[Rfam]
The record is a 48-nucleotide sequence from Anisodus acutangulus, which matches "Exoribonuclease-resistant RNA (xrRNA) plant-infecting virus (class 3)" in Rfam.
The family's RNA type in Rfam is cis-regulatory element.
Exoribonuclease-resistant RNA (xrRNA) plant-infecting virus (class 3) is a ncRNA that was reported in Plant viruses.
On this family, see Steckelberg et al., mBio 2018: "Exoribonuclease-Resistant RNAs Exist within both Coding and Noncoding Subgenomic RNAs".
RNA sequence: AACCUAUCCACCUAUAGGGUUGCAAAGAUUGGAAGGUAAGCCCCUUAA
Numbered sequence: 001a002a003c004c005u006a007u008c009c010a011c012c013u014a015u016a017g018g019g020u021u022g023c024a025a026a027g028a029u030u031g032g033a034a035g036g037u038a039a040g041c042c043c044c045u046u047a048a
Stems, first nucleotide, its partner, number of pairs: 001037001003035001008032002012027002016045004